[Rfam]
RNA sequence: AGUAGUGAUGGCAAUGGAGCUUGCCGAAACCGCUUUGCGCUAUAAAUUGCUUUUAUAACGUUUAAAAGGCUGAUGGCUCCUACUUAUUC
Numbered sequence: 001a002g003u004a005g006u007g008a009u010g011g012c013a014a015u016g017g018a019g020c021u022u023g024c025c026g027a028a029a030c031c032g033c034u035u036u037g038c039g040c041u042a043u044a045a046a047u048u049g050c051u052u053u054u055a056u057a058a059c060g061u062u063u064a065a066a067a068g069g070c071u072g073a074u075g076g077c078u079c080c081u082a083c084u085u086a087u088u089c
Stems, first nucleotide, its partner, number of pairs: 010025004016080006032070004
Dot-bracket structure: .........[[[[..((((((]]]]......((((...............................))))....)))))).........
The record is an 89-nucleotide RNA from Pseudanabaena sp. SR411, which matches "Fluoride riboswitch aptamer (crcB RNA motif)" in Rfam. Rfam 15.1 lists 2,293 matches to the family in 1,982 species. Rfam links the family to the GO terms response to fluoride and positive regulation of gene expression. A search with the family's covariance model found it, with a score of 46 bits. The family's consensus secondary structure is taken from published work.